Rfam assigns this 76-nucleotide RNA sequence from Anolis carolinensis to the family "mir-202 microRNA precursor family".
[Rfam]
RNA sequence: UUGUUCCUUUUUCCUAUGCAUAUACUUCUUUGAGAAUCUGAUCUAAAGAGGCAUACGGCAUGGGAAAAUGGGGCAA
Number, nucleotide and partner (000 for none) at each position: 001u000002u000003g000004u000005u000006c000007c000008u000009u000010u067011u066012u065013c064014c063015u062016a061017u060018g059019c058020a000021u055022a054023u053024a000025c051026u050027u049028c048029u047030u046031u045032g044033a000034g000035a000036a000037u000038c000039u000040g000041a000042u000043c000044u032045a031046a030047a029048g028049a027050g026051g025052c000053a023054u022055a021056c000057g000058g019059c018060a017061u016062g015063g014064g013065a012066a011067a010068a000069u000070g000071g000072g000073g000074c000075a000076a000
The organism belongs to Anolis, within Eukaryota. The sequence is in the family's curated seed alignment. Rfam 15.1 lists 673 matches to the family in 631 species. A reference for the family is Bentwich et al. (2005), "Identification of hundreds of conserved and nonconserved human microRNAs", Nat Genet. Its family is annotated with miRNA-mediated post-transcriptional gene silencing and RISC complex in the Gene Ontology.